[Rfam]
RNA sequence: GUUGUGAAAUAAUCAAUCGCAGAGCCUUUAAGAAGACUCAAAGUACAAUUUUUGCAAACCCUGGUCUUAUUAGGUUGGGGUA
Numbered sequence: 001g002u003u004g005u006g007a008a009a010u011a012a013u014c015a016a017u018c019g020c021a022g023a024g025c026c027u028u029u030a031a032g033a034a035g036a037c038u039c040a041a042a043g044u045a046c047a048a049u050u051u052u053u054g055c056a057a058a059c060c061c062u063g064g065u066c067u068u069a070u071u072a073g074g075u076u077g078g079g080g081u082a
Stems, first nucleotide, its partner, number of pairs: 022039003026035003058081006065074003
Dot-bracket structure: .....................(((.(((....))).)))..................((((((.(((....))).)))))).
Shown here is an 82-nucleotide RNA sequence from Caenorhabditis japonica, a member of the family "SmY spliceosomal RNA". It scores 67 bits against the family's covariance model. Lineage of the source: Eukaryota > Eumetazoa > Bilateria > Peloderinae > Caenorhabditis. On this family, see MacMorris et al., RNA 2007: "A novel family of C. elegans snRNPs contains proteins associated with trans-splicing".